RNA sequence: AUGCAUCCACUGAUAGACCUGAAGCAAAAUGCAGUGGCUUCUUGGUUUGCACAGCGAUGCAAGAUCAAAUUCCUCUUUUUCUCCAUCUGUUUUUUUUUUGUGGCAGAUUGGAUUGAAUUGGUGAAGACAGUA
Dot-bracket structure: .((((((...((.((((((..((((.(.......).))))...))))))))....)))))).........((.((...(..((((.(((((..........)))))..))))..)....)).))........
Small nucleolar RNA SNORA31: a 132-nucleotide RNA from Acipenser ruthenus. Rfam 15.1 lists 2,094 matches to the family in 626 species. Rfam describes the family as follows. ACA31 (SNORA31) belongs to the H/ACA class of snoRNAs which are thought to guide the sites of modification of uridines to pseudouridines. The family's RNA type in Rfam is H/ACA-box small nucleolar RNA. Lineage of the source: Eukaryota > Opisthokonta > Acipenseroidei > Acipenserinae > Acipenser. The family's consensus secondary structure was predicted with RNAalifold.